[Rfam]
RNA sequence: CUCACGAAAAUGAAGAACUAGAAAGUCAUAUAUUAAGACUAGGAACCACCUCCUUGGCUGGCUCAAUCUCCCUUGAGCUAGCCAUUUC
Number, nucleotide and partner (000 for none) at each position: 001c000002u000003c000004a000005c000006g000007a000008a000009a000010a000011u000012g000013a000014a000015g000016a000017a000018c000019u000020a000021g000022a000023a000024a000025g000026u000027c000028a000029u000030a000031u000032a000033u000034u000035a000036a000037g000038a000039c000040u000041a054042g053043g052044a051045a000046c000047c000048a000049c000050c000051u044052c043053c042054u041055u000056g083057g082058c081059u080060g079061g078062c077063u076064c075065a074066a073067u000068c000069u000070c000071c000072c000073u066074u065075g064076a063077g062078c061079u060080a059081g058082c057083c056084a000085u000086u000087u000088c000
The record is an 88-nucleotide sequence from Providencia sneebia, which matches "CyaR/Rye RNA" in Rfam. This sRNA was originally identified in a large scale screen of E. coli. It was shown to bind Hfq and called RyeE. This sRNA has since been characterised as a post-transcriptional regulator of the 18 kDa OmpX porin in Salmonella. Lineage of the source: Bacteria > Gammaproteobacteria > Enterobacterales > Providencia > Providencia sneebia. It scores 75 bits against the family's covariance model. The family's RNA type in Rfam is small RNA.